[Rfam]
RNA sequence: AGGUGAAUUACAGGGUAGUUUCCCUUUUGGCAGGAAACAACACCAUAAUGACACAAAUAAUACCAAGAGGUGUAUUCAUGCCAAAGGGGAUUUGCCCAGCAAUUUUGCU
Numbered sequence: 001a002g003g004u005g006a007a008u009u010a011c012a013g014g015g016u017a018g019u020u021u022c023c024c025u026u027u028u029g030g031c032a033g034g035a036a037a038c039a040a041c042a043c044c045a046u047a048a049u050g051a052c053a054c055a056a057a058u059a060a061u062a063c064c065a066a067g068a069g070g071u072g073u074a075u076u077c078a079u080g081c082c083a084a085a086g087g088g089g090a091u092u093u094g095c096c097c098a099g100c101a102a103u104u105u106u107g108c109u
Base pairs, nucleotide, nucleotide: 005105006104007103008102009101011099013097014096015095016094017093018092022089023088024087025086028083029082030081031080032079034077035076036075
mir-399 microRNA precursor family: a 109-nucleotide sequence from Lupinus angustifolius. Rfam links the family to the GO terms miRNA-mediated post-transcriptional gene silencing and RISC complex. From the family's description: mir-399 was identified in both Arabidopsis thaliana and Oryza sativa computationally and was later experimentally verified. mir-399 is thought to target mRNAs coding for a phosphatase transporter. The mature sequence is excised from the 3' arm of the hairpin. The source organism's lineage runs through Eukaryota, Streptophytina, Embryophyta, Magnoliopsida and Lupinus. On this family, see Jones-Rhoades and Bartel, Mol Cell 2004: "Computational Identification of Plant MicroRNAs and Their Targets, Including a Stress-Induced miRNA". It scores 66 bits against the family's covariance model.